[Rfam]
RNA sequence: GCUAUGUGCAAAUCAGGCGGGGUUCGAACCUGCCGCAGGUUCGGGUCGAACACCGUGAGACAGCGUUGCGCCAGCAACGACCCGAAGGGCGAGGCGAAGCCGAGUCAUCCUGCACGACCCACCA
Numbered sequence: 001g002c003u004a005u006g007u008g009c010a011a012a013u014c015a016g017g018c019g020g021g022g023u024u025c026g027a028a029c030c031u032g033c034c035g036c037a038g039g040u041u042c043g044g045g046u047c048g049a050a051c052a053c054c055g056u057g058a059g060a061c062a063g064c065g066u067u068g069c070g071c072c073a074g075c076a077a078c079g080a081c082c083c084g085a086a087g088g089g090c091g092a093g094g095c096g097a098a099g100c101c102g103a104g105u106c107a108u109c110c111u112g113c114a115c116g117a118c119c120c121a122c123c124a
Stems, first nucleotide, its partner, number of pairs: 017113005023107001034091002040086004047057002064079006